[Rfam]
RNA sequence: UUAGGGAACUCUGGAGAGACCUAUAUAGGCGCCGAAGGGGCAAGGCAAUUUUGCUCAAUCUCUCAGGCAAAAGGACAGGGAUUAUGUA
Number, nucleotide and partner (000 for none) at each position: 001u000002u000003a000004g000005g000006g083007a082008a000009c080010u079011c078012u077013g076014g000015a000016g000017a000018g000019a000020c029021c028022u027023a000024u000025a000026u000027a022028g021029g020030c000031g068032c067033c066034g064035a063036a000037g000038g062039g061040g060041c000042a000043a000044g055045g054046c000047a000048a000049u000050u000051u000052u000053g000054c045055u044056c000057a000058a000059u000060c040061u039062c038063u035064c034065a000066g033067g032068c031069a000070a000071a000072a000073g000074g000075a000076c013077a012078g011079g010080g009081a000082u007083u006084a000085u000086g000087u000088a000